[Rfam]
RNA sequence: UAGAACUAAGAGACUAAACAGUCAAAUGAUAGAGUAACGUCUUGAAGGGCUGUCAUUAAUGCUCCGAAUUGCAUUAAGUAUAUUAAGAUACUUAAUGUAAUAAGCUCGGUGAAGUCAAGGGAAAGUUACCGUAAUUAUACGAAAGCUACCUCAGUCAGGUGGUGUAACUGAUACCUUGGAUGCCUUUAAA
Numbered sequence: 001u002a003g004a005a006c007u008a009a010g011a012g013a014c015u016a017a018a019c020a021g022u023c024a025a026a027u028g029a030u031a032g033a034g035u036a037a038c039g040u041c042u043u044g045a046a047g048g049g050c051u052g053u054c055a056u057u058a059a060u061g062c063u064c065c066g067a068a069u070u071g072c073a074u075u076a077a078g079u080a081u082a083u084u085a086a087g088a089u090a091c092u093u094a095a096u097g098u099a100a101u102a103a104g105c106u107c108g109g110u111g112a113a114g115u116c117a118a119g120g121g122a123a124a125g126u127u128a129c130c131g132u133a134a135u136u137a138u139a140c141g142a143a144a145g146c147u148a149c150c151u152c153a154g155u156c157a158g159g160u161g162g163u164g165u166a167a168c169u170g171a172u173a174c175c176u177u178g179g180a181u182g183c184c185u186u187u188a189a190a
Stems, first nucleotide, its partner, number of pairs: 018053006031043002034040001054182004064109004068101014116178005124169006130141003145163007
RNA: Group II catalytic intron D1-D4-5
Organism: Halobacteroides halobius